[Rfam]
Shown here is a 47-nucleotide RNA from Accipiter nisus, a member of the family "Histone 3' UTR stem-loop". Rfam links the family to the GO term mRNA 3'-end processing by stem-loop binding and cleavage. Rfam's curators write: The mRNAs of metazoan histone genes lack a poly-A tail. 3' end processing occurs at a site between a highly conserved stem-loop (modelled by this family) and a purine rich region around 20 nts downstream (the histone downstream element, or HDE). The family's RNA type in Rfam is cis-regulatory element. The organism belongs to Accipiter, within Eukaryota.

RNA sequence: CCAAAGGCUCUUUUAAGAGCCACCACAUGGCCACUAAAGAGAGCUGU
Numbered sequence: 001c002c003a004a005a006g007g008c009u010c011u012u013u014u015a016a017g018a019g020c021c022a023c024c025a026c027a028u029g030g031c032c033a034c035u036a037a038a039g040a041g042a043g044c045u046g047u
Stems, first nucleotide, its partner, number of pairs: 006021006